[Rfam]
RNA sequence: AUUGGUCAUCUGUUGAGUAUCCUUACGGGCUUUUCACAGAUGGCCUUCGUUUUACGAAAUUAUAGGAGUGUUCCCUAAUGGCCCGUAUAGCCGGCAUUAACAUUCCUGAU
Numbered sequence: 001a002u003u004g005g006u007c008a009u010c011u012g013u014u015g016a017g018u019a020u021c022c023u024u025a026c027g028g029g030c031u032u033u034u035c036a037c038a039g040a041u042g043g044c045c046u047u048c049g050u051u052u053u054a055c056g057a058a059a060u061u062a063u064a065g066g067a068g069u070g071u072u073c074c075c076u077a078a079u080g081g082c083c084c085g086u087a088u089a090g091c092c093g094g095c096a097u098u099a100a101c102a103u104u105c106c107u108g109a110u
Stems, first nucleotide, its partner, number of pairs: 004045010021094002026085004034109002
RNA: Alpha operon ribosome binding site